[Rfam]
RNA sequence: CUCUUAUCCAGAGAGGUGGAGGGACUGGCCCGAUGAAACCCGGCAACCCUCACCUUGGGGAUUAACGCGCCAGAUAGGCGAAACCCCGGGGUGAAAGGUGCCAAUUCCUGCGGGACGGGUUUGUCCUGAGAGAUAAGAG
Numbered sequence: 001c002u003c004u005u006a007u008c009c010a011g012a013g014a015g016g017u018g019g020a021g022g023g024a025c026u027g028g029c030c031c032g033a034u035g036a037a038a039c040c041c042g043g044c045a046a047c048c049c050u051c052a053c054c055u056u057g058g059g060g061a062u063u064a065a066c067g068c069g070c071c072a073g074a075u076a077g078g079c080g081a082a083a084c085c086c087c088g089g090g091g092u093g094a095a096a097g098g099u100g101c102c103a104a105u106u107c108c109u110g111c112g113g114g115a116c117g118g119g120u121u122u123g124u125c126c127u128g129a130g131a132g133a134u135a136a137g138a139g
Stems, first nucleotide, its partner, number of pairs: 001139008013041001015040003021031003025110001027108002042102004047098002050094011106131001111128006
The record is a 139-nucleotide RNA from Clostridiales bacterium PH28_bin88, which matches "SAM riboswitch aptamer (S box leader)" in Rfam. The match comes from Rfam's covariance-model search (91 bits). Rfam links the family to the GO term regulation of gene expression. Rfam's curators write: The SAM riboswitch is found upstream of a number of genes which code for proteins involved in methionine or cysteine biosynthesis in Gram-positive bacteria. NCBI's taxonomy places the organism under Bacteria, Bacillati, Bacillota, Clostridia, Eubacteriales. The family is grouped with related families in Rfam's "SAM clan".